[Rfam]
RNA: epsC RNA
RNA sequence: UGGGAAUGCCUCCUAUCCAUUAUAAUCGGAGGCACUCGAUCACCUUGUGGGCGGGAGGAGACUCCGCGCCUUAGACGCUUGUCGUCGAUGGGGUGAUGUGAGGACAGGUUAGAUGCCUG
Numbered sequence: 001u002g003g004g005a006a007u008g009c010c011u012c013c014u015a016u017c018c019a020u021u022a023u024a025a026u027c028g029g030a031g032g033c034a035c036u037c038g039a040u041c042a043c044c045u046u047g048u049g050g051g052c053g054g055g056a057g058g059a060g061a062c063u064c065c066g067c068g069c070c071u072u073a074g075a076c077g078c079u080u081g082u083c084g085u086c087g088a089u090g091g092g093g094u095g096a097u098g099u100g101a102g103g104a105c106a107g108g109u110u111a112g113a114u115g116c117c118u119g
Base pairs, nucleotide, nucleotide: 001019002018003017004016007034008033009032010031011030012029013028035102036101037100038099039097040096041095042094043093044092045091046090049071050070051069052068053067054065055064056063074086075085076084077083105119106118107117108116109115